Notes
This 130-nucleotide sequence from Drosophila grimshawi belongs to the Rfam family "Small nucleolar RNA psi28S-3316". Rfam's curators write: psi28S-3316 is a member of the H/ACA class of snoRNA. This family is responsible for guiding the modification of uridine 3316 in Drosophila 28S rRNA to pseudouridine. Taxonomically the source falls in Hawaiian Drosophila (Eukaryota, Metazoa, Mandibulata, Allotriocarida). Rfam 15.1 lists 85 matches to the family in 19 species. It is one of the family's seed sequences.
[Rfam]
RNA sequence: AGCACCUAAAAGCGUUUUCUUGUAGGCCAAUUCAAUGCUCUUGAAAAUCGUAGCUGUGUGCCAGAUUAAAUCUAAGUUGCAAGUGACUUUUUGUAUUUCUAAAUAAAAGUCCAUAACGCUGAGUACAUUU
Dot-bracket structure: .(((((.....((((((((..((.(..........)))....))))).)))....).))))...........(.(((.....(((((((.(..(.......)..).)))).)))...))).)........
Numbered sequence: 001a002g003c004a005c006c007u008a009a010a011a012g013c014g015u016u017u018u019c020u021u022g023u024a025g026g027c028c029a030a031u032u033c034a035a036u037g038c039u040c041u042u043g044a045a046a047a048u049c050g051u052a053g054c055u056g057u058g059u060g061c062c063a064g065a066u067u068a069a070a071u072c073u074a075a076g077u078u079g080c081a082a083g084u085g086a087c088u089u090u091u092u093g094u095a096u097u098u099c100u101a102a103a104u105a106a107a108a109g110u111c112c113a114u115a116a117c118g119c120u121g122a123g124u125a126c127a128u129u130u
Stems, first nucleotide, its partner, number of pairs: 002061004006056001012051003015047005022038002025036001073122001075120003083114003086110004091105001094102001